[Rfam]
RNA sequence: AAGCGUUCACCUCACUUAUUCGAGGCGCAGCUCGAUCCAAGCCAUGGAACGGGGGCUUGGG
Numbered sequence: 001a002a003g004c005g006u007u008c009a010c011c012u013c014a015c016u017u018a019u020u021c022g023a024g025g026c027g028c029a030g031c032u033c034g035a036u037c038c039a040a041g042c043c044a045u046g047g048a049a050c051g052g053g054g055g056c057u058u059g060g061g
Stems, first nucleotide, its partner, number of pairs: 004051005010025004036061006042054002
RNA: Glutamine-II riboswitch aptamer